Shown here is a 108-nucleotide RNA from Nicotiana attenuata, a member of the family "Small nucleolar RNA snoR97".
[Rfam]
RNA sequence: UAUUUUUCUUAAGUCUUACUUUCAUUAAAUUUCAUAAAGUUAGUGUUAUUAUCAGUUUCUUCUCUUGAAUAUCCAACGAGAUUGGAGUUAAAUCGUAGCACUACAUGU
Number, nucleotide and partner (000 for none) at each position: 001u000002a000003u000004u000005u000006u000007u000008c000009u000010u000011a000012a000013g000014u000015c000016u000017u000018a000019c000020u000021u000022u000023c000024a000025u000026u000027a000028a000029a000030u000031u000032u000033c000034a000035u000036a000037a000038a000039g000040u000041u000042a102043g101044u100045g099046u098047u097048a096049u000050u000051a000052u000053c000054a089055g088056u087057u086058u085059c084060u000061u081062c080063u079064c078065u000066u000067g000068a000069a000070u000071a000072u000073c000074c000075a000076a000077c000078g064079a063080g062081a061082u000083u000084g059085g058086a057087g056088u055089u054090a000091a000092a000093u000094c000095g000096u048097a047098g046099c045100a044101c043102u042103a000104c000105a000106u000107g000108u000

Lineage of the source: Eukaryota > Viridiplantae > Streptophyta > Embryophyta > Nicotiana. Pairs were carried over by alignment from the consensus structure, which was predicted with WAR.